The family of this 109-nucleotide RNA from Planomicrobium sp. CPCC 101110 is "RNA Staph. aureus E (RoxS)". The base pairs follow the family's consensus structure, which is taken from published work. The family's RNA type in Rfam is small RNA. The literature on the family includes a 2009 paper in Nucleic Acids Res by Geissmann et al., "A search for small noncoding RNAs in Staphylococcus aureus reveals a conserved sequence motif for regulation". Rfam describes the family as follows. It was shown to be regulated by the presence of nitric oxide (NO). In Bacillus subtilis it controls expression of genes with functions related to oxidative stress and oxidation-reduction reactions and it was renamed RoxS (for related to oxidative stress).
[Rfam]
RNA sequence: GUGAAAUAAAUCACAUACAAACAUACACCCCUUUGUUUGAGCGUGAACAUUUCUCCCAUCCCCUUUGUGUAAUGGAAAAGGCCUCUUCCGGACGUGGAAGGGGCCUUUU
Numbered sequence: 001g002u003g004a005a006a007u008a009a010a011u012c013a014c015a016u017a018c019a020a021a022c023a024u025a026c027a028c029c030c031c032u033u034u035g036u037u038u039g040a041g042c043g044u045g046a047a048c049a050u051u052u053c054u055c056c057c058a059u060c061c062c063c064u065u066u067g068u069g070u071a072a073u074g075g076a077a078a079a080g081g082c083c084u085c086u087u088c089c090g091g092a093c094g095u096g097g098a099a100g101g102g103g104c105c106u107u108u109u
Base pairs, nucleotide, nucleotide: 003053004052005051006050007049011046012045013044014043018039019038020037021036022035023034079106080105081104082103083102084101085100086099087098088097089096